[Rfam]
RNA sequence: UGGCGCCCAACAUGGGGCUUGGAUACUGGGGGACAAUGUGAGGGUCUGAUGAUGGAAGAAAAAGGGGUGCGCACCCGCUCAAAUAAUUCGGAGAUGCUGCGGGAGCCUGCCACAACCGAGCUGAAGGUAAGUUGGUCAUUCAAUCAUGGGGCAAGAAUUAAGUCAGCAUCAGAUUUAUGUGAUACAGUUAAGAGAAGCUCUACAGGCAAGAGGAGUAAAGGUUAAAACUGAGGAUUUAUUUCAUUUCUUUGAUUUUGUAAAGGACAUUUGUCCAU
Numbered sequence: 001u002g003g004c005g006c007c008c009a010a011c012a013u014g015g016g017g018c019u020u021g022g023a024u025a026c027u028g029g030g031g032g033a034c035a036a037u038g039u040g041a042g043g044g045u046c047u048g049a050u051g052a053u054g055g056a057a058g059a060a061a062a063a064g065g066g067g068u069g070c071g072c073a074c075c076c077g078c079u080c081a082a083a084u085a086a087u088u089c090g091g092a093g094a095u096g097c098u099g100c101g102g103g104a105g106c107c108u109g110c111c112a113c114a115a116c117c118g119a120g121c122u123g124a125a126g127g128u129a130a131g132u133u134g135g136u137c138a139u140u141c142a143a144u145c146a147u148g149g150g151g152c153a154a155g156a157a158u159u160a161a162g163u164c165a166g167c168a169u170c171a172g173a174u175u176u177a178u179g180u181g182a183u184a185c186a187g188u189u190a191a192g193a194g195a196a197g198c199u200c201u202a203c204a205g206g207c208a209a210g211a212g213g214a215g216u217a218a219a220g221g222u223u224a225a226a227a228c229u230g231a232g233g234a235u236u237u238a239u240u241u242c243a244u245u246u247c248u249u250u251g252a253u254u255u256u257g258u259a260a261a262g263g264a265c266a267u268u269u270g271u272c273c274a275u
Base pairs, nucleotide, nucleotide: 006031007030008029013025014024037051038050039049085128087126088124089123095118096117098114099113101111102110137151139150140149141148142147159202160201162198163197210250211249212248213247214246215245219237220236221235222234223233260275262273263272264271265270
Rfam assigns this 275-nucleotide RNA sequence from Nannospalax galili to the family "Mason-Pfizer monkey virus packaging signal". By type it is a cis-regulatory element. For this family Rfam cites "Mutational analysis of the predicted secondary RNA structure of the Mason-Pfizer monkey virus packaging signal" (Mustafa et al., Virus Res, 2004). Its family is annotated with viral genome packaging in the Gene Ontology.